[Rfam]
RNA: Plastid-rps12 3UTR RNA
RNA sequence: GUUUGGUACAAAUCCAAUCAUCUAGAUUGGAAUUGGAAGAAGCAAUUCCCCCAUUGGUAGCAAAUGGUUAUCCAUUAAGCGGAGGAAAUAGUAA
Numbered sequence: 001g002u003u004u005g006g007u008a009c010a011a012a013u014c015c016a017a018u019c020a021u022c023u024a025g026a027u028u029g030g031a032a033u034u035g036g037a038a039g040a041a042g043c044a045a046u047u048c049c050c051c052c053a054u055u056g057g058u059a060g061c062a063a064a065u066g067g068u069u070a071u072c073c074a075u076u077a078a079g080c081g082g083a084g085g086a087a088a089u090a091g092u093a094a
Stems, first nucleotide, its partner, number of pairs: 003017004048084001051082002053075002056072006